[Rfam]
RNA sequence: CAGCGGGACACCCCUCCCCAACGAGGGGCCUUUAGCUGGAAGGCUACCAUGA
Numbered sequence: 001c002a003g004c005g006g007g008a009c010a011c012c013c014c015u016c017c018c019c020a021a022c023g024a025g026g027g028g029c030c031u032u033u034a035g036c037u038g039g040a041a042g043g044c045u046a047c048c049a050u051g052a
Base pairs, nucleotide, nucleotide: 011028012027013026014025015024016023033046034045035044036043037042
Rfam assigns this 52-nucleotide RNA from Pseudogemmobacter blasticus to the family "serC leader". The source organism's lineage runs through Bacteria, Alphaproteobacteria, Rhodobacterales, Pseudogemmobacter and Pseudogemmobacter blasticus. It scores 67 bits against the family's covariance model. The pairing is the family consensus, mapped onto this sequence. From the family's description: This family is a putative regulatory RNA structure that is found upstream of the serC-serA operon in some alpha-proteobacteria. The final stem of the structure overlaps the ribosome binding site of the serC reading frame. For this family Rfam cites "Evidence for a second class of S-adenosylmethionine riboswitches and other regulatory RNA motifs in alpha-proteobacteria" (Corbino et al., Genome Biol, 2005).